[Rfam]
RNA sequence: UUUCCCAUUUGACUACCACAUUUUCUCCUAAUAAUAGAUUUUAUUGGCUAUACUUAUGGGAUAGGUUAACAUUGACAUGACCUAAAGAGGGAGAUUUAUUUGUGUCCUCCUCCUUUAUGAAAUGGCUGAACAUAAAUAA
Numbered sequence: 001u002u003u004c005c006c007a008u009u010u011g012a013c014u015a016c017c018a019c020a021u022u023u024u025c026u027c028c029u030a031a032u033a034a035u036a037g038a039u040u041u042u043a044u045u046g047g048c049u050a051u052a053c054u055u056a057u058g059g060g061a062u063a064g065g066u067u068a069a070c071a072u073u074g075a076c077a078u079g080a081c082c083u084a085a086a087g088a089g090g091g092a093g094a095u096u097u098a099u100u101u102g103u104g105u106c107c108u109c110c111u112c113c114u115u116u117a118u119g120a121a122a123u124g125g126c127u128g129a130a131c132a133u134a135a136a137u138a139a
Stems, first nucleotide, its partner, number of pairs: 004060004016047003074126001076124002092114002

A member of the RNA family "Small nucleolar RNA SNORA29" from Molossus molossus, 139 nucleotides long. The family is grouped with related families in Rfam's "SNORA20 clan". A search with the family's covariance model found it, with a score of 132 bits. By type it is an H/ACA-box small nucleolar RNA. Lineage of the source: Eukaryota > Metazoa > Bilateria > Boreoeutheria > Molossus. A reference for the family is Huttenhofer et al. (2001), "RNomics: an experimental approach that identifies 201 candidates for novel, small, non-messenger RNAs in mouse", EMBO J. The base pairs follow the family's consensus structure, which was predicted with PFOLD. About the family: ACA29 is a member of the H/ACA class of snoRNA that guide the sites of modification of uridines to pseudouridines.